[Rfam]
RNA sequence: CCAAAGGCUCUUUUCAGAGCCACUUCAAUUACAAGAAGUGGCUGU
Numbered sequence: 001c002c003a004a005a006g007g008c009u010c011u012u013u014u015c016a017g018a019g020c021c022a023c024u025u026c027a028a029u030u031a032c033a034a035g036a037a038g039u040g041g042c043u044g045u
Stems, first nucleotide, its partner, number of pairs: 006021006
The family of this 45-nucleotide RNA sequence from Phyllostomus discolor is "Histone 3' UTR stem-loop". Taxonomically the source falls in Phyllostomus (Eukaryota, Chordata, Vertebrata, Eutheria). Rfam classes the family as a cis-regulatory element. The family's consensus secondary structure is taken from published work.